Group II catalytic intron D1-D4-7: a 155-nucleotide RNA from Paraburkholderia panacisoli. Rfam links the family to the GO term Group II intron splicing. Rfam describes the family as follows. Group II introns are found in rRNA, tRNA and mRNA of organelles in fungi, plants and protists, and also in mRNA in bacteria. A search with the family's covariance model found it, with a score of 120 bits. The organism belongs to Paraburkholderia, within Bacteria. The base pairs follow the family's consensus structure.

[Rfam]
RNA sequence: CCUGCUGUACGACCAGCAGUAGCCUACGAAGACAUGCGUCACUGGCAACGGUGGGGUGUGAAGCUCUUCUGACAAUGUAGCCCCCAGAAGUAAUGGGUGCGUGAAUGCCGCGAGGUAUUCACUCAGAGACUCCAAGCAGCAAAGGGGUUGAGGCG
Numbered sequence: 001c002c003u004g005c006u007g008u009a010c011g012a013c014c015a016g017c018a019g020u021a022g023c024c025u026a027c028g029a030a031g032a033c034a035u036g037c038g039u040c041a042c043u044g045g046c047a048a049c050g051g052u053g054g055g056g057u058g059u060g061a062a063g064c065u066c067u068u069c070u071g072a073c074a075a076u077g078u079a080g081c082c083c084c085c086a087g088a089a090g091u092a093a094u095g096g097g098u099g100c101g102u103g104a105a106u107g108c109c110g111c112g113a114g115g116u117a118u119u120c121a122c123u124c125a126g127a128g129a130c131u132c133c134a135a136g137c138a139g140c141a142a143a144g145g146g147g148u149u150g151a152g153g154c155g
Base pairs, nucleotide, nucleotide: 002019003018004017005016006015007014028069029068030067031066032065033060034059035058036057037056039054040053041052042051043050044049084097085096086094098125099124101122108115109114129148130147131146132145133144